Overview: Shown here is a 136-nucleotide sequence from Caulobacter vibrioides, a member of the family "Caulobacter sRNA CC3664". It is one of the family's seed sequences. The literature on the family includes a 2008 paper in Mol Microbiol by Landt et al., "Small non-coding RNAs in Caulobacter crescentus".
RNA sequence: GUCGGCUGAUCGGAGACCCUGUGGUCCAGGAUCCUGAACAGCCCCCCCAGCCCCCCAGAUCAUGGGCCGGUCAGCCGACAAACCUAUAUCCCCUCCCCGAGAUGAGCCCGCGCGGACCACCCCCACCGCGCGGGCU
Numbered sequence: 001g002u003c004g005g006c007u008g009a010u011c012g013g014a015g016a017c018c019c020u021g022u023g024g025u026c027c028a029g030g031a032u033c034c035u036g037a038a039c040a041g042c043c044c045c046c047c048c049a050g051c052c053c054c055c056c057a058g059a060u061c062a063u064g065g066g067c068c069g070g071u072c073a074g075c076c077g078a079c080a081a082a083c084c085u086a087u088a089u090c091c092c093c094u095c096c097c098c099g100a101g102a103u104g105a106g107c108c109c110g111c112g113c114g115g116a117c118c119a120c121c122c123c124c125a126c127c128g129c130g131c132g133g134g135c136u
Base pairs, nucleotide, nucleotide: 001079002078003077004076005075006074007073008072009071010070011069012068013067018066019065020064021063022062023061024060025059026058029055030054034050035049036048087104088103089102090101092099105136106135107134108133109132110131111130112129113128114127115126